[Rfam]
RNA sequence: GUCACGGGAUCGUUAGCGGAAUCAUAAUCGCGCCGUCUUUCCGCCCAGGGAGCGCCCCCGACGUUAGGCAUAAGAUUCGUGUGCGUUGGCCCGGUCCUUUCGGUUCCGGAUUCCUCAGCCCCCAGCCCCCCGGGGUCGUCAGGAUCGGGUCUAUUCACAAGUAAUGGCAAAGGGCCAACGCGAGUUGGUCCUUUU
Numbered sequence: 001g002u003c004a005c006g007g008g009a010u011c012g013u014u015a016g017c018g019g020a021a022u023c024a025u026a027a028u029c030g031c032g033c034c035g036u037c038u039u040u041c042c043g044c045c046c047a048g049g050g051a052g053c054g055c056c057c058c059c060g061a062c063g064u065u066a067g068g069c070a071u072a073a074g075a076u077u078c079g080u081g082u083g084c085g086u087u088g089g090c091c092c093g094g095u096c097c098u099u100u101c102g103g104u105u106c107c108g109g110a111u112u113c114c115u116c117a118g119c120c121c122c123c124a125g126c127c128c129c130c131c132g133g134g135g136u137c138g139u140c141a142g143g144a145u146c147g148g149g150u151c152u153a154u155u156c157a158c159a160a161g162u163a164a165u166g167g168c169a170a171a172g173g174g175c176c177a178a179c180g181c182g183a184g185u186u187g188g189u190c191c192u193u194u195u
Stems, first nucleotide, its partner, number of pairs: 037161001038052002041049002080159004085154002088151011101138009118126002172191008
Rfam assigns this 195-nucleotide RNA from Bradyrhizobium sp. ORS 278 to the family "Bradyrhizobiaceae sRNA BjrC174". NCBI's taxonomy places the organism under Bacteria, Pseudomonadota, Alphaproteobacteria, Nitrobacteraceae, Bradyrhizobium. The literature on the family includes a 2012 paper in RNA Biol by Madhugiri et al., "Small RNAs of the Bradyrhizobium/Rhodopseudomonas lineage and their analysis". The sequence is in the family's curated seed alignment. The pairing is the family consensus, mapped onto this sequence.